The record is a 197-nucleotide sequence from Williopsis jadinii, which matches "Small nucleolar RNA snR80" in Rfam. On this family, see Schattner et al., Nucleic Acids Res 2004: "Genome-wide searching for pseudouridylation guide snoRNAs: analysis of the Saccharomyces cerevisiae genome". It scores 86 bits against the family's covariance model. The family's RNA type in Rfam is H/ACA-box small nucleolar RNA. Taxonomically the source falls in Williopsis (Eukaryota, Saccharomycetes, Phaffomycetales, Wickerhamomycetaceae).

[Rfam]
RNA sequence: GACAGUUUGCCAACACUCUGGUGCUUAGUUCAGUCUUGGAGCUUGUCUCCUGAAGACUGAGAUCUAUACUAAGUUCCUAUUUUGGUGCAAACGAGAACUACUUUCUGCUAAUUACUCACCAAGGUAAUCUUUUCAAUAACUGAUUCUUCGGUUUCGGUUCUCUUGUGAUUACAUUGGUCCAUUUCAAUAGCAGACAU
Numbered sequence: 001g002a003c004a005g006u007u008u009g010c011c012a013a014c015a016c017u018c019u020g021g022u023g024c025u026u027a028g029u030u031c032a033g034u035c036u037u038g039g040a041g042c043u044u045g046u047c048u049c050c051u052g053a054a055g056a057c058u059g060a061g062a063u064c065u066a067u068a069c070u071a072a073g074u075u076c077c078u079a080u081u082u083u084g085g086u087g088c089a090a091a092c093g094a095g096a097a098c099u100a101c102u103u104u105c106u107g108c109u110a111a112u113u114a115c116u117c118a119c120c121a122a123g124g125u126a127a128u129c130u131u132u133u134c135a136a137u138a139a140c141u142g143a144u145u146c147u148u149c150g151g152u153u154u155c156g157g158u159u160c161u162c163u164u165g166u167g168a169u170u171a172c173a174u175u176g177g178u179c180c181a182u183u184u185c186a187a188u189a190g191c192a193g194a195c196a197u
Stems, first nucleotide, its partner, number of pairs: 007090003020077002023074002026071004031059007106192004119177004124172006